[Rfam]
RNA sequence: ACAUUCAUUUCAAGGGUCAUUGUACAAGCGUGCUCGUCGCGACCCCUGCCAGCCCUUUUCAGGGCUGCAAUUCCACA
Numbered sequence: 001a002c003a004u005u006c007a008u009u010u011c012a013a014g015g016g017u018c019a020u021u022g023u024a025c026a027a028g029c030g031u032g033c034u035c036g037u038c039g040c041g042a043c044c045c046c047u048g049c050c051a052g053c054c055c056u057u058u059u060c061a062g063g064g065c066u067g068c069a070a071u072u073c074c075a076c077a
Base pairs, nucleotide, nucleotide: 014045015044016043017042018041021077022076023075026072027071028040029039030038050067051066052065053064054063055062056061